[Rfam]
RNA sequence: AGGUACUGGCGGACACUCCGGUUCCUCCGCGCCGUUCGCACCCAUUGGCGACUGCUUGCUCCGUUGUGUUACCC
Numbered sequence: 001a002g003g004u005a006c007u008g009g010c011g012g013a014c015a016c017u018c019c020g021g022u023u024c025c026u027c028c029g030c031g032c033c034g035u036u037c038g039c040a041c042c043c044a045u046u047g048g049c050g051a052c053u054g055c056u057u058g059c060u061c062c063g064u065u066g067u068g069u070u071a072c073c074c
Base pairs, nucleotide, nucleotide: 003014004013006011019034020033021032022031024029046071047070048069049068050067
Notes:
Shown here is a 74-nucleotide RNA from Xanthomonas campestris, a member of the family "Xanthomonas sRNA sX9". The family's RNA type in Rfam is small RNA. Lineage of the source: Bacteria > Pseudomonadota > Lysobacterales > Xanthomonas > Xanthomonas campestris pv. campestris.